[Rfam]
The family of this 131-nucleotide RNA sequence from Neomonachus schauinslandi is "Small nucleolar RNA SNORA61".
Rfam classes the family as an H/ACA-box small nucleolar RNA.
Rfam describes the family as follows. ACA61 is a member of the H/ACA class of snoRNA that guide the sites of modification of uridines to pseudouridines.
Taxonomically the source falls in Neomonachus (Eukaryota, Euteleostomi, Mammalia, Caniformia).
Rfam links the family to the GO terms RNA processing and nucleolus.
RNA sequence: ACCCUCUGGUUCCCUUUCCCAUCGGAUCUGAACGCUAGUCUUGGUGGUUGUUAAAGGAGGAAAAGGAACAAUGAAGCUGGCUUCCAGUGUUUAUAAUCUGGUAUACAGCUUGUGGGCUGUUUUAAACAAGG
Numbered sequence: 001a002c003c004c005u006c007u008g009g010u011u012c013c014c015u016u017u018c019c020c021a022u023c024g025g026a027u028c029u030g031a032a033c034g035c036u037a038g039u040c041u042u043g044g045u046g047g048u049u050g051u052u053a054a055a056g057g058a059g060g061a062a063a064a065g066g067a068a069c070a071a072u073g074a075a076g077c078u079g080g081c082u083u084c085c086a087g088u089g090u091u092u093a094u095a096a097u098c099u100g101g102u103a104u105a106c107a108g109c110u111u112g113u114g115g116g117c118u119g120u121u122u123u124a125a126a127c128a129a130g131g
Base pairs, nucleotide, nucleotide: 003060004059005058006057007056019047020046021045022044023043025040026039027038077119079118080117081116082115083114094108